RNA sequence: UCCUGACAGCGGCGCUGUGCCGCUGACUCUAGCCACGACAGGAGUUACCCAUG
Dot-bracket structure: .((((.(((((.........))))).............))))...........
Numbered sequence: 001u002c003c004u005g006a007c008a009g010c011g012g013c014g015c016u017g018u019g020c021c022g023c024u025g026a027c028u029c030u031a032g033c034c035a036c037g038a039c040a041g042g043a044g045u046u047a048c049c050c051a052u053g
Stems, first nucleotide, its partner, number of pairs: 002042004007025005